[Rfam]
RNA: tRNA
RNA sequence: GUUCUCGUGGUGUAGCGGUUAUCACAUCUGCCUAACACGCAGAAGGUCCCAGGUUCGAUCCCUGGCGAGAACA
Numbered sequence: 001g002u003u004c005u006c007g008u009g010g011u012g013u014a015g016c017g018g019u020u021a022u023c024a025c026a027u028c029u030g031c032c033u034a035a036c037a038c039g040c041a042g043a044a045g046g047u048c049c050c051a052g053g054u055u056c057g058a059u060c061c062c063u064g065g066c067g068a069g070a071a072c073a
Stems, first nucleotide, its partner, number of pairs: 001072007010025003027043005049065005